A member of the RNA family "SAM riboswitch aptamer (S box leader)" from Rudanella paleaurantiibacter, 112 nucleotides long. The match comes from Rfam's covariance-model search (70 bits). The organism belongs to Rudanella, within Bacteria.

RNA sequence: GAUUUAUACAGAAGCGAGGAGAGACCAGGCUCUACGAAUCGCUGGCAACCUACCCACUCCGGCAAGGUGCUAAUUCCUGCCCACGGCAAGGCGCUGAUGGGAAAUAUAAGUU
Numbered sequence: 001g002a003u004u005u006a007u008a009c010a011g012a013a014g015c016g017a018g019g020a021g022a023g024a025c026c027a028g029g030c031u032c033u034a035c036g037a038a039u040c041g042c043u044g045g046c047a048a049c050c051u052a053c054c055c056a057c058u059c060c061g062g063c064a065a066g067g068u069g070c071u072a073a074u075u076c077c078u079g080c081c082c083a084c085g086g087c088a089a090g091g092c093g094c095u096g097a098u099g100g101g102a103a104a105u106a107u108a109a110g111u112u
Stems, first nucleotide, its partner, number of pairs: 001112008013043005021032003026079004044071004049067002051064001053062002075104001080101004